Shown here is a 157-nucleotide sequence from Streptomyces sp. ADI95-17, a member of the family "c-di-AMP riboswitch aptamer (ydaO/yuaA leader)".

RNA sequence: AAUUCACAUCCACUCAUCGCGUGGCAGGAGCGGGGGAACCAGGUAAGCCGCCGGCCGGAGAAAUCCGGCCGGCUCGGGGUGAAGUCGCGCCAAGCGCGGCCGGGCAUCUCCAGCCCGAACCCGACAGCUCACCUCGCAGGCGCCGGAGAGGAAAUAC
Numbered sequence: 001a002a003u004u005c006a007c008a009u010c011c012a013c014u015c016a017u018c019g020c021g022u023g024g025c026a027g028g029a030g031c032g033g034g035g036g037a038a039c040c041a042g043g044u045a046a047g048c049c050g051c052c053g054g055c056c057g058g059a060g061a062a063a064u065c066c067g068g069c070c071g072g073c074u075c076g077g078g079g080u081g082a083a084g085u086c087g088c089g090c091c092a093a094g095c096g097c098g099g100c101c102g103g104g105c106a107u108c109u110c111c112a113g114c115c116c117g118a119a120c121c122c123g124a125c126a127g128c129u130c131a132c133c134u135c136g137c138a139g140g141c142g143c144c145g146g147a148g149a150g151g152a153a154a155u156a157c
Stems, first nucleotide, its partner, number of pairs: 003029003030137006040076001077122003085099004102116004
The match comes from Rfam's covariance-model search (64 bits).